[Rfam]
RNA sequence: UUUUAUAGCGGCGAUGGAGUUCGCCUUUAAGUCCGUGCAGACGGUAAUGACUCCUACCACUUA
Numbered sequence: 001u002u003u004u005a006u007a008g009c010g011g012c013g014a015u016g017g018a019g020u021u022c023g024c025c026u027u028u029a030a031g032u033c034c035g036u037g038c039a040g041a042c043g044g045u046a047a048u049g050a051c052u053c054c055u056a057c058c059a060c061u062u063a
Stems, first nucleotide, its partner, number of pairs: 010025004016054006033044004
A member of the RNA family "Fluoride riboswitch aptamer (crcB RNA motif)" from Propionispora vibrioides, 63 nucleotides long. Its family is annotated with positive regulation of gene expression and response to fluoride in the Gene Ontology.